The family of this 72-nucleotide sequence from Oppiella nova is "tRNA".
RNA sequence: GCGAGAUUAGCUCAGUGGGAGACCACUAGACUGAAGAUCUGAUGGUCCCGGGUUCAAUCCCCGGAUCUCGCA
Number, nucleotide and partner (000 for none) at each position: 001g071002c070003g069004a068005g067006a066007u065008u000009a000010g024011c000012u022013c021014a000015g000016u000017g000018g000019g000020a000021g013022a012023c000024c010025a000026c000027u041028a040029g039030a038031c000032u000033g000034a000035a000036g000037a000038u030039c029040u028041g027042a000043u000044g000045g000046u000047c000048c064049c063050g062051g061052g060053u000054u000055c000056a000057a000058u000059c000060c052061c051062c050063g049064g048065a007066u006067c005068u004069c003070g002071c001072a000
Background: The organism belongs to Oppiella, within Eukaryota. The family's consensus secondary structure is taken from published work. Rfam classes the family as a transfer RNA.